A member of the RNA family "Small nucleolar RNA U3", 215 nucleotides long. Rfam links the family to the GO terms nucleolus and RNA processing. It is one of the family's seed sequences. The family's RNA type in Rfam is C/D-box small nucleolar RNA. Pairs were carried over by alignment from the consensus structure, which is taken from published work. Rfam's curators write: Small nucleolar RNAs (snoRNAs) are involved in the processing and modification of rRNA in the nucleolus. There are two main classes of snoRNAs: the box C/D class, and the box H/ACA class. U3 snoRNA is a member of the box C/D class. Indeed, the box C/D element is a subset of the six short sequence elements found in all U3 snoRNAs, namely boxes A, A', B, C, C', and D. The U3 snoRNA secondary structure is characterised by a small 5' domain (with boxes A and A'), and a larger 3' domain (with boxes B, C, C', and D), the two domains being linked by a single-stranded hinge.
[Rfam]
RNA sequence: AAGACUAUACUUUCAGGGAUCAUUUCUAUAGUUCGUUACUAGAGAAGUUUCUCUGACUGUGUAGAGCACCCGAAACCACGAGGACGAGACAUAGCGUCCCCUCCUGAGCGUGAAGCCGGCUCUAGGUGCUGCUUCUGUGCAGCUGCCUCUUGCCAUUGAUGAUCGUUCUUCUCUCCUUCGGGAGGGUAAGAGGGAGGGAACGCAGUCUGAGUGGA
Numbered sequence: 001a002a003g004a005c006u007a008u009a010c011u012u013u014c015a016g017g018g019a020u021c022a023u024u025u026c027u028a029u030a031g032u033u034c035g036u037u038a039c040u041a042g043a044g045a046a047g048u049u050u051c052u053c054u055g056a057c058u059g060u061g062u063a064g065a066g067c068a069c070c071c072g073a074a075a076c077c078a079c080g081a082g083g084a085c086g087a088g089a090c091a092u093a094g095c096g097u098c099c100c101c102u103c104c105u106g107a108g109c110g111u112g113a114a115g116c117c118g119g120c121u122c123u124a125g126g127u128g129c130u131g132c133u134u135c136u137g138u139g140c141a142g143c144u145g146c147c148u149c150u151u152g153c154c155a156u157u158g159a160u161g162a163u164c165g166u167u168c169u170u171c172u173c174u175c176c177u178u179c180g181g182g183a184g185g186g187u188a189a190g191a192g193g194g195a196g197g198g199a200a201c202g203c204a205g206u207c208u209g210a211g212u213g214g215a
Stems, first nucleotide, its partner, number of pairs: 002040002006035001009032003015027004049065002054061001076214004094203004099198007108166003118154003124148004128143005169189002171186006